RNA sequence: GACCGGUCGUUGCGAUAGUAAUUCUGCUCAGUACGAGAGGAACCGCAGAUUCGGACACUUGGUUCACGUGCUUGGUCGAGAGUCCAGUGGUGCGAAGCUACCAUCCGUGGGAUUACGACUGAACGCCUCUAAGUCAGAAUCCCGUCUAAGCACUGCAACGAUAUCGUGUGCACUUGCGGCGAAUGCGGGUAAGAUUAGCGCCGGGUCGAGCGCGGCGGGCCGCCGCGCUUCCCGGCUCGAUGACGCCAAAUGAACCCAGAGAGCGCCACACCGGAGGCCGAGUAUUGACGAGGCCACUGGUCGCUCUCCGGGGCUAUGGCUGGCCUGAAUCGCUGCAGUGUCAAAUCGUCUGAAGACGACUUAGGUACCUGUCGUGGUGUCGUAAGUAGUAGAGCAGCCACCACACUGCGAUCUAUUGAGGCUUAGCCUCUGACUGGAAGGUUUGU
Dot-bracket structure: .....((((((((..(((..(.(((((.................))))).)((((....(((....(((((((((.(....).))))..)))))...)))...)))).(((.....((((...........)))).....)))..)))......)))))))).........(((.(((((((...................................................................................................................................................))))))))))...(((((.(..(.......)..).....(.((((.((.((.....((((.(..((((........))))..)))))....))....))..)))).)...)))))..

A member of the RNA family "Eukaryotic large subunit ribosomal RNA" from Haemaphysalis longicornis, 446 nucleotides of a longer RNA. It scores 2952 bits against the family's covariance model. Rfam links the family to the GO terms ribosome and structural constituent of ribosome.